[Rfam]
RNA sequence: ACGCGUUCUCAGGGCGGGGCGAAAUUCCCCACCGGCGGUAUCCGCGAUUCGUCGCGGGAGCCCGCGAGCGCCUUCGCAUCCUCACGGGCGAAGGGUCAGCAGACCUGGUGCGAUGCCAGGGCCGACGGUCACAGUCCGGAUGAAAGAGAAACGCGA
Numbered sequence: 001a002c003g004c005g006u007u008c009u010c011a012g013g014g015c016g017g018g019g020c021g022a023a024a025u026u027c028c029c030c031a032c033c034g035g036c037g038g039u040a041u042c043c044g045c046g047a048u049u050c051g052u053c054g055c056g057g058g059a060g061c062c063c064g065c066g067a068g069c070g071c072c073u074u075c076g077c078a079u080c081c082u083c084a085c086g087g088g089c090g091a092a093g094g095g096u097c098a099g100c101a102g103a104c105c106u107g108g109u110g111c112g113a114u115g116c117c118a119g120g121g122c123c124g125a126c127g128g129u130c131a132c133a134g135u136c137c138g139g140a141u142g143a144a145a146g147a148g149a150a151a152c153g154c155g156a
Base pairs, nucleotide, nucleotide: 003154004153005152006151007149008148009147010146017029018028019027031135032134033124034123035065036064037063038062060122061121068100069099104120105119106118107117108116126138127137128136
FMN riboswitch aptamer (RFN element): a 156-nucleotide RNA sequence from Vitreoscilla sp. The match comes from Rfam's covariance-model search (104 bits). Its family is annotated with FMN binding in the Gene Ontology.